[Rfam]
The record is a 69-nucleotide RNA sequence from Anopheles gambiae, which matches "mir-375 microRNA precursor family" in Rfam. Taxonomically the source falls in gambiae species complex (Eukaryota, Protostomia, Arthropoda, Hexapoda). Its family is annotated with miRNA-mediated post-transcriptional gene silencing and RISC complex in the Gene Ontology. A reference for the family is Chen et al. (2005), "The developmental miRNA profiles of zebrafish as determined by small RNA cloning", Genes Dev.

RNA sequence: GAUUACUUAAGCCACGCGUACAGAAACUUUUUAGAAUGAAAGAGUUUGUUCGUUUGGCUCGAGUUAUGC
Numbered sequence: 001g002a003u004u005a006c007u008u009a010a011g012c013c014a015c016g017c018g019u020a021c022a023g024a025a026a027c028u029u030u031u032u033a034g035a036a037u038g039a040a041a042g043a044g045u046u047u048g049u050u051c052g053u054u055u056g057g058c059u060c061g062a063g064u065u066a067u068g069c
Stems, first nucleotide, its partner, number of pairs: 002067002005064004010059004017052002020049004027044002